U1 spliceosomal RNA: a 162-nucleotide sequence. U1 is a small nuclear RNA (snRNA) component of the spliceosome (involved in pre-mRNA splicing). A reference for the family is Katsamba et al. (2001), "Two functionally distinct steps mediate high affinity binding of U1A protein to U1 hairpin II RNA", J Biol Chem. It is annotated as a spliceosomal small nuclear RNA.
[Rfam]
RNA sequence: AUACUUACCUGGCGCAGGGGUAGCAUUGAUCAAGAAGGAUGCACCCCCAGGACGAGGCUUGCUAUUGCACACCGGCUCGCUGAAGCUUGCGAUUCCCUCAAACGUAGGGAACUCGGGCGUAUUAUUUAUGGUAGCGGGGAUCUGCGUUCGCGCUAUCCCCUU
Numbered sequence: 001a002u003a004c005u006u007a008c009c010u011g012g013c014g015c016a017g018g019g020g021u022a023g024c025a026u027u028g029a030u031c032a033a034g035a036a037g038g039a040u041g042c043a044c045c046c047c048c049a050g051g052a053c054g055a056g057g058c059u060u061g062c063u064a065u066u067g068c069a070c071a072c073c074g075g076c077u078c079g080c081u082g083a084a085g086c087u088u089g090c091g092a093u094u095c096c097c098u099c100a101a102a103c104g105u106a107g108g109g110a111a112c113u114c115g116g117g118c119g120u121a122u123u124a125u126u127u128a129u130g131g132u133a134g135c136g137g138g139g140a141u142c143u144g145c146g147u148u149c150g151c152g153c154u155a156u157c158c159c160c161u162u
Base pairs, nucleotide, nucleotide: 012120013119014118015117017047018046019045020044021043023042024041025040026039027038049087050086055081056080061076062075063074090115091114092113093111094109095108097107098106136160137159138158139157144153145152146151